[Rfam]
RNA sequence: AACGGAGGACGACCUCCGCCCAUCACGGGACUUCAUCCAGGACGGCCUGG
Numbered sequence: 001a002a003c004g005g006a007g008g009a010c011g012a013c014c015u016c017c018g019c020c021c022a023u024c025a026c027g028g029g030a031c032u033u034c035a036u037c038c039a040g041g042a043c044g045g046c047c048u049g050g
Base pairs, nucleotide, nucleotide: 003018004017005016006015007014008013037050038049039048040047041046
Rfam assigns this 50-nucleotide RNA sequence from Stenotrophomonas terrae to the family "Guanidine-II riboswitch aptamer (mini-ykkC)". A search with the family's covariance model found it, with a score of 40 bits. The family has 72 seed sequences and 1,589 matches in Rfam 15.1.